[Rfam]
RNA sequence: CCAGUUGCCCGUUGUGGGGCUGGCACUGUCAAGCGGGCGUCAGGGACGUCGGAUCGGACUUGGCGCCACCUUGUAUCCAUGUUGCUCAACGGAGGAUGUGGCUAUGAGAU
Numbered sequence: 001c002c003a004g005u006u007g008c009c010c011g012u013u014g015u016g017g018g019g020c021u022g023g024c025a026c027u028g029u030c031a032a033g034c035g036g037g038c039g040u041c042a043g044g045g046a047c048g049u050c051g052g053a054u055c056g057g058a059c060u061u062g063g064c065g066c067c068a069c070c071u072u073g074u075a076u077c078c079a080u081g082u083u084g085c086u087c088a089a090c091g092g093a094g095g096a097u098g099u100g101g102c103u104a105u106g107a108g109a110u
Stems, first nucleotide, its partner, number of pairs: 001023006008017002036067008070108006077101007085094003